Shown here is a 78-nucleotide RNA from Chrysochloris asiatica, a member of the family "mir-147 microRNA precursor family". The match comes from Rfam's covariance-model search (67 bits). The family has 26 seed sequences and 757 matches in Rfam 15.1.
RNA sequence: UAUAAAACUAGUGGGAACACUUCCACACAAACUAGAUUAUAGAUGACAGUGUGCAGAAUUGCUUCUGAUACAUUUUUA
Numbered sequence: 001u002a003u004a005a006a007a008c009u010a011g012u013g014g015g016a017a018c019a020c021u022u023c024c025a026c027a028c029a030a031a032c033u034a035g036a037u038u039a040u041a042g043a044u045g046a047c048a049g050u051g052u053g054c055a056g057a058a059u060u061g062c063u064u065c066u067g068a069u070a071c072a073u074u075u076u077u078a
Stems, first nucleotide, its partner, number of pairs: 001078002004075003009070002012067005018061002021058003026053004032049002